[Rfam]
Shown here is a 102-nucleotide RNA from Bacillus sp. FJAT-18017, a member of the family "SAM riboswitch aptamer (S box leader)". The source organism's lineage runs through Bacteria, Bacillati, Bacillota, Caryophanales and Bacillus. The base pairs follow the family's consensus structure, which is taken from published work.
RNA sequence: UUCUUAUCAAGAGAGGUGGAGGGAAUGGCCCUAAGAAACCUCGGCAACAGGCCUAAAAAGGUACUGUGCUAAAUCCAGCAGGCGAAGCCUGAGAGAUAAGAA
Numbered sequence: 001u002u003c004u005u006a007u008c009a010a011g012a013g014a015g016g017u018g019g020a021g022g023g024a025a026u027g028g029c030c031c032u033a034a035g036a037a038a039c040c041u042c043g044g045c046a047a048c049a050g051g052c053c054u055a056a057a058a059a060g061g062u063a064c065u066g067u068g069c070u071a072a073a074u075c076c077a078g079c080a081g082g083c084g085a086a087g088c089c090u091g092a093g094a095g096a097u098a099a100g101a102a
Stems, first nucleotide, its partner, number of pairs: 001102008013042005021031003026077003043070004048066002051062004074094001079091005